[Rfam]
RNA sequence: GCAAUGGAAGGGGGCGUCGUUAAUGGCGUCAAUCUCUAAUGGAGAAGCAGAGGAACAACGAUGAGGCGAGAAAUCGUUUCAGUUGCCAUUUUUCCCAUUGGCGAUUCGAUUGUUGCUCGUCCACAC
Numbered sequence: 001g002c003a004a005u006g007g008a009a010g011g012g013g014g015c016g017u018c019g020u021u022a023a024u025g026g027c028g029u030c031a032a033u034c035u036c037u038a039a040u041g042g043a044g045a046a047g048c049a050g051a052g053g054a055a056c057a058a059c060g061a062u063g064a065g066g067c068g069a070g071a072a073a074u075c076g077u078u079u080c081a082g083u084u085g086c087c088a089u090u091u092u093u094c095c096c097a098u099u100g101g102c103g104a105u106u107c108g109a110u111u112g113u114u115g116c117u118c119g120u121c122c123a124c125a126c
Stems, first nucleotide, its partner, number of pairs: 007037001009035003013030006065122002068118003073110004082105007090097001
Shown here is a 126-nucleotide RNA from Cocos nucifera, a member of the family "Small nucleolar RNA snoR111". The family's RNA type in Rfam is H/ACA-box small nucleolar RNA. For this family Rfam cites "Experimental RNomics: identification of 140 candidates for small non-messenger RNAs in the plant Arabidopsis thaliana" (Marker et al., Curr Biol, 2002). The organism belongs to Cocos, within Eukaryota. A search with the family's covariance model found it, with a score of 75 bits.